[Rfam]
RNA: TPP riboswitch aptamer (THI element)
Organism: Flavipsychrobacter stenotrophus
Nucleotides: 092
Base pairs, nucleotide, nucleotide: 006080007079008078009077010076011043012042013041014040016037017029018028019027020026021025049073050072051071052070055068056067057066058065
Number, partner (000 for none) and nucleotide at each position: 001000a002000a003000c004000a005000a006080u007079g008078u009077u010076u011043c012042g013041g014040g015000g016037u017029g018028c019027c020026u021025u022000u023000a024000u025021a026020a027019g028018g029017c030000u031000g032000a033000g034000a035000u036000c037016a038000c039000a040014c041013c042012c043011g044000u045000u046000g047000a048000a049073c050072c051071u052070g053000g054000a055068c056067c057066g058065g059000g060000u061000a062000a063000u064000g065058c066057c067056g068055g069000u070052u071051a072050g073049g074000a075000a076010a077009a078008a079007c080006g081000c082000u083000u084000g085000a086000a087000a088000a089000a090000g091000u092000g